[Rfam]
RNA sequence: CCCUCCGAAGUUUCCCCCAGGAUAGCUGGAGUUCAUUGUGGCGGUUAUAUCCGGUAAAGCGAAUGAUUAGAGGACUUGGGGUCGAAACGACCUCAACCUAUUCUCAAACUUUCAAUGGGUAUGUUGUCUCGGUUUCUUCAACAUGUCAUUGUUUUUGACAACAUUGACACACUGAACUGUUGACACGAACGUGAACUCUAAGUGGGCCAUUUUUGGUAAGCAGAACUGGCGCUGUGGGAUGAACCAAACGUUGGGUUAAGGUGCCAAACUAUUCGCUCAUUAGAUCCCAUAAAAGGCGUUGGUUGAUAUAGACAGCAGGACGGUGGCCAUGGAAGUCGGUAUCCGCUAAGGAGUGUGUAACAACUCACCUGCCGAAUCAACUAGCCCUGAAAAUGGAUGGCGCUUGAGCGAAUGACCUAUACCCAACCGUUGCUGGCAUGAGUGUGCGUGUAGUGUGGUGUCUCAUCACCAUCACGUACGCCGCCUGGCCGCAACGAGUAGGAGGGUCGUGGCGGUUGCGUUGAAGGUUUUGGGCGUAGGCCCAGCUGGAGCUUCCGUCAGUGCAGAU
Numbered sequence: 001c002c003c004u005c006c007g008a009a010g011u012u013u014c015c016c017c018c019a020g021g022a023u024a025g026c027u028g029g030a031g032u033u034c035a036u037u038g039u040g041g042c043g044g045u046u047a048u049a050u051c052c053g054g055u056a057a058a059g060c061g062a063a064u065g066a067u068u069a070g071a072g073g074a075c076u077u078g079g080g081g082u083c084g085a086a087a088c089g090a091c092c093u094c095a096a097c098c099u100a101u102u103c104u105c106a107a108a109c110u111u112u113c114a115a116u117g118g119g120u121a122u123g124u125u126g127u128c129u130c131g132g133u134u135u136c137u138u139c140a141a142c143a144u145g146u147c148a149u150u151g152u153u154u155u156u157g158a159c160a161a162c163a164u165u166g167a168c169a170c171a172c173u174g175a176a177c178u179g180u181u182g183a184c185a186c187g188a189a190c191g192u193g194a195a196c197u198c199u200a201a202g203u204g205g206g207c208c209a210u211u212u213u214u215g216g217u218a219a220g221c222a223g224a225a226c227u228g229g230c231g232c233u234g235u236g237g238g239a240u241g242a243a244c245c246a247a248a249c250g251u252u253g254g255g256u257u258a259a260g261g262u263g264c265c266a267a268a269c270u271a272u273u274c275g276c277u278c279a280u281u282a283g284a285u286c287c288c289a290u291a292a293a294a295g296g297c298g299u300u301g302g303u304u305g306a307u308a309u310a311g312a313c314a315g316c317a318g319g320a321c322g323g324u325g326g327c328c329a330u331g332g333a334a335g336u337c338g339g340u341a342u343c344c345g346c347u348a349a350g351g352a353g354u355g356u357g358u359a360a361c362a363a364c365u366c367a368c369c370u371g372c373c374g375a376a377u378c379a380a381c382u383a384g385c386c387c388u389g390a391a392a393a394u395g396g397a398u399g400g401c402g403c404u405u406g407a408g409c410g411a412a413u414g415a416c417c418u419a420u421a422c423c424c425a426a427c428c429g430u431u432g433c434u435g436g437c438a439u440g441a442g443u444g445u446g447c448g449u450g451u452a453g454u455g456u457g458g459u460g461u462c463u464c465a466u467c468a469c470c471a472u473c474a475c476g477u478a479c480g481c482c483g484c485c486u487g488g489c490c491g492c493a494a495c496g497a498g499u500a501g502g503a504g505g506g507u508c509g510u511g512g513c514g515g516u517u518g519c520g521u522u523g524a525a526g527g528u529u530u531u532g533g534g535c536g537u538a539g540g541c542c543c544a545g546c547u548g549g550a551g552c553u554u555c556c557g558u559c560a561g562u563g564c565a566g567a568u
Stems, first nucleotide, its partner, number of pairs: 001506006011024001013022003027200007046123007057112001058110002064106003069101001071099003076096006083089001126184003130179005206230004211225005235246003250427005256421001260417003269414001271413001274410003294388003298385010315372005321345003326340003346350001351366001355364002428496006435490003508563001510560006518552002526547002533542003